Rfam assigns this 120-nucleotide sequence from Nicotiana sylvestris to the family "Small nucleolar RNA SNORD14". A reference for the family is Samarsky et al. (1996), "An essential domain in Saccharomyces cerevisiae U14 snoRNA is absent in vertebrates, but conserved in other yeasts", Nucleic Acids Res. Lineage of the source: Eukaryota > eudicotyledons > Pentapetalae > Nicotianeae > Nicotiana. The family's RNA type in Rfam is C/D-box small nucleolar RNA. It scores 70 bits against the family's covariance model. Rfam describes the family as follows. U14 small nucleolar RNA (U14 snoRNA) is required for early cleavages of eukaryotic precursor rRNAs. In yeasts, this molecule possess a stem-loop region (known as the Y-domain) which is essential for function. A similar structure, but with a different consensus sequence, is found in plants, but is absent in vertebrates.
[Rfam]
RNA sequence: UGUCUAUGAUGAUAAAUUUGAAGGCUUGUUUCUCAAGACAUUCGCAGUGGCCGACUAAGAGCUUUCGCCUUCGCCAGGCUUGAGAGUUUAUGCUGCUUUUAUCCUUGGAUGUCUGAGACA
Numbered sequence: 001u002g003u004c005u006a007u008g009a010u011g012a013u014a015a016a017u018u019u020g021a022a023g024g025c026u027u028g029u030u031u032c033u034c035a036a037g038a039c040a041u042u043c044g045c046a047g048u049g050g051c052c053g054a055c056u057a058a059g060a061g062c063u064u065u066c067g068c069c070u071u072c073g074c075c076a077g078g079c080u081u082g083a084g085a086g087u088u089u090a091u092g093c094u095g096c097u098u099u100u101a102u103c104c105u106u107g108g109a110u111g112u113c114u115g116a117g118a119c120a
Base pairs, nucleotide, nucleotide: 001120002119003118004117061087062086063085064084065083066082